[Rfam]
RNA sequence: UAACAAAUUCGUGAUGCUUUGGGGGGCAUAUUGUUUGGCGGUUUAUAGGAGCUAGAUCUAUCUUUUGGAUGGACCUCCAACCUAUUCUUACCUCCAAAAUCGUUACAAUAGCUUCCUUCUGAAUUUAUCUUUCUUUUCUUUGGUUUAGGUUAUUUUGUAUAAGUUAUUUCAAGGAGAAAAAAGGGAAAGGAUGAUGAGUGUCGUAGAUAAAUCUUCGGUUCCGAAUAGUCUGACUGUUGGUAUCGAGGUAAUCCAACUUUAAAACCAUCGCCGUUAGAGGUCGCUUCCGGUUUACUCGGUUAAGUGACCCAUGAAAUGGUGAUGACCUAAAGUUUGGAACAGUU
Numbered sequence: 001u002a003a004c005a006a007a008u009u010c011g012u013g014a015u016g017c018u019u020u021g022g023g024g025g026g027c028a029u030a031u032u033g034u035u036u037g038g039c040g041g042u043u044u045a046u047a048g049g050a051g052c053u054a055g056a057u058c059u060a061u062c063u064u065u066u067g068g069a070u071g072g073a074c075c076u077c078c079a080a081c082c083u084a085u086u087c088u089u090a091c092c093u094c095c096a097a098a099a100u101c102g103u104u105a106c107a108a109u110a111g112c113u114u115c116c117u118u119c120u121g122a123a124u125u126u127a128u129c130u131u132u133c134u135u136u137u138c139u140u141u142g143g144u145u146u147a148g149g150u151u152a153u154u155u156u157g158u159a160u161a162a163g164u165u166a167u168u169u170c171a172a173g174g175a176g177a178a179a180a181a182a183g184g185g186a187a188a189g190g191a192u193g194a195u196g197a198g199u200g201u202c203g204u205a206g207a208u209a210a211a212u213c214u215u216c217g218g219u220u221c222c223g224a225a226u227a228g229u230c231u232g233a234c235u236g237u238u239g240g241u242a243u244c245g246a247g248g249u250a251a252u253c254c255a256a257c258u259u260u261a262a263a264a265c266c267a268u269c270g271c272c273g274u275u276a277g278a279g280g281u282c283g284c285u286u287c288c289g290g291u292u293u294a295c296u297c298g299g300u301u302a303a304g305u306g307a308c309c310c311a312u313g314a315a316a317u318g319g320u321g322a323u324g325a326c327c328u329a330a331a332g333u334u335u336g337g338a339a340c341a342g343u344u
Base pairs, nucleotide, nucleotide: 013202014201015200016199017198018197019196022116023115024114025113026112027111030109031108032107033106034105037104038103039102040101041100042099043098044097045085046084047083048082049081054076055075057073058072060070061069062068125186126185128183132180134178135177138174139173140172141171142170143169146166147165148164150162151161152160153159213248214247215246216245217244218243219242221240222239224238225237226236227235228234252338253337254336255335256334257332258331266324267323268322269321270320271319272318273317274316275315279309280308281307282306283305284304285303286302287299288298289297290296